[Rfam]
RNA sequence: UUACGGUCUUUAACAUUGGCCGAAACUGUAGUGAACCUAUGGUUAUAAAUCAUCAAAUUGCGGGAAAACCCUAAAGAAAUCUUAACCAAGUAAGUAUGGUAACAUAACUUAUGGCACAGGUAAUGACUCGUGGUACGGUAAAAUCCAGAUUUAUUAUUCAAUGGGCAAUCCGCAGCCAAGUACCAAAUAUUUUAUAUUUGGUAUGCAGUUCAUCGACUAAACGGUGGUUGGUAUUAUUAGUAAUAAUAAUGCUUAAGAUAUAGUCAGCCCCACCUGAAAAGGUGCA
Numbered sequence: 001u002u003a004c005g006g007u008c009u010u011u012a013a014c015a016u017u018g019g020c021c022g023a024a025a026c027u028g029u030a031g032u033g034a035a036c037c038u039a040u041g042g043u044u045a046u047a048a049a050u051c052a053u054c055a056a057a058u059u060g061c062g063g064g065a066a067a068a069c070c071c072u073a074a075a076g077a078a079a080u081c082u083u084a085a086c087c088a089a090g091u092a093a094g095u096a097u098g099g100u101a102a103c104a105u106a107a108c109u110u111a112u113g114g115c116a117c118a119g120g121u122a123a124u125g126a127c128u129c130g131u132g133g134u135a136c137g138g139u140a141a142a143a144u145c146c147a148g149a150u151u152u153a154u155u156a157u158u159c160a161a162u163g164g165g166c167a168a169u170c171c172g173c174a175g176c177c178a179a180g181u182a183c184c185a186a187a188u189a190u191u192u193u194a195u196a197u198u199u200g201g202u203a204u205g206c207a208g209u210u211c212a213u214c215g216a217c218u219a220a221a222c223g224g225u226g227g228u229u230g231g232u233a234u235u236a237u238u239a240g241u242a243a244u245a246a247u248a249a250u251g252c253u254u255a256a257g258a259u260a261u262a263g264u265c266a267g268c269c270c271c272a273c274c275u276g277a278a279a280a281g282g283u284g285c286a
Base pairs, nucleotide, nucleotide: 004022005021006020007019008018011015028037048229049228050227051226052225054223059174060173061172062171063170064169069165070164071163175209176208180204181203182202183201187197188196189195190194213266215265216264217263218262219261231252232251233250234249235248236247237246238245239244271284272283273282274281275280
About this RNA:
This 286-nucleotide RNA from Hymenoscyphus albidus belongs to the Rfam family "Group I catalytic intron". Group I catalytic introns are large self-splicing ribozymes. They catalyse their own excision from mRNA, tRNA and rRNA precursors in a wide range of organisms. The core secondary structure consists of 9 paired regions (P1-P9). These fold to essentially two domains - the P4-P6 domain (formed from the stacking of P5, P4, P6 and P6a helices) and the P3-P9 domain (formed from the P8, P3, P7 and P9 helices). Taxonomically the source falls in Hymenoscyphus (Eukaryota, Fungi, saccharomyceta, Helotiales). The family's consensus secondary structure is taken from published work. Rfam 15.1 lists 5,602 matches to the family in 1,395 species.